A member of the RNA family "Small nucleolar RNA snoR74" from Camellia sinensis, 107 nucleotides long. The family's RNA type in Rfam is H/ACA-box small nucleolar RNA. The literature on the family includes a 2002 paper in Curr Biol by Marker et al., "Experimental RNomics: identification of 140 candidates for small non-messenger RNAs in the plant Arabidopsis thaliana". Lineage of the source: Eukaryota > Tracheophyta > Gunneridae > asterids > Camellia sinensis. The family's consensus secondary structure was predicted with WAR.
RNA sequence: GAAAAAGUAGGGGCCUGUUUCCUUCUUGUGGGAAAUCAUUUUUUUCAUUGUUAUUGGGUGAACCUCUUGAGUAGAUGAUUGAAGGUUCAGUAAAUGAUGGGACAUUA
Numbered sequence: 001g002a003a004a005a006a007g008u009a010g011g012g013g014c015c016u017g018u019u020u021c022c023u024u025c026u027u028g029u030g031g032g033a034a035a036u037c038a039u040u041u042u043u044u045u046c047a048u049u050g051u052u053a054u055u056g057g058g059u060g061a062a063c064c065u066c067u068u069g070a071g072u073a074g075a076u077g078a079u080u081g082a083a084g085g086u087u088c089a090g091u092a093a094a095u096g097a098u099g100g101g102a103c104a105u106u107a
Stems, first nucleotide, its partner, number of pairs: 005027003044101009059089007